Shown here is a 115-nucleotide sequence from Aedes aegypti, a member of the family "drz-agam-1 ribozyme". A reference for the family is Webb et al. (2009), "Widespread occurrence of self-cleaving ribozymes", Science.
[Rfam]
RNA sequence: UGUUCAGUAACUCCUAUCCCUACUUCCCCGUGGUGCCGCAGGAGGGACGAGUAACCGUAGGGAAGAUUGGGUAACCAAUUCCGGUGGGACCUUGGUCGUAUGCUGACAGGGAAGG
Dot-bracket structure: ............(((.(((..(((.......)))..........(.((((.((.......................................)).)))).).......))).)))
Background: The family has 7 seed sequences and 10,507 matches in Rfam 15.1. The source organism's lineage runs through Eukaryota, Bilateria, Culicomorpha, Culicoidea and Stegomyia.